[Rfam]
RNA sequence: CGGACAGGGGGGUUCCCGCUCACCGGCGGGGCCUGUCCAGUUGAGGUUGCGCGAACGCGUGGCCAGUGGUUGUCGCUCGGGGGUGAUCGCCG
Number, nucleotide and partner (000 for none) at each position: 001c000002g038003g037004a036005c035006a034007g033008g032009g000010g000011g000012g000013u000014u031015c030016c029017c028018g027019c026020u025021c000022a000023c000024c000025g020026g019027c018028g017029g016030g015031g014032c008033c007034u006035g005036u004037c003038c002039a000040g000041u000042u000043g000044a000045g064046g063047u062048u061049g060050c059051g058052c057053g000054a000055a000056c000057g052058c051059g050060u049061g048062g047063c046064c045065a000066g000067u000068g000069g000070u000071u000072g000073u000074c000075g000076c000077u000078c000079g000080g000081g000082g000083g000084u000085g000086a000087u000088c000089g000090c000091c000092g000
Record summary:
A member of the RNA family "che1 RNA" from Streptomyces sp. 150FB, 92 nucleotides long. Taxonomically the source falls in Streptomyces (Bacteria, Actinomycetes, Kitasatosporales, Streptomycetaceae). The family's RNA type in Rfam is small RNA. The match comes from Rfam's covariance-model search (96 bits).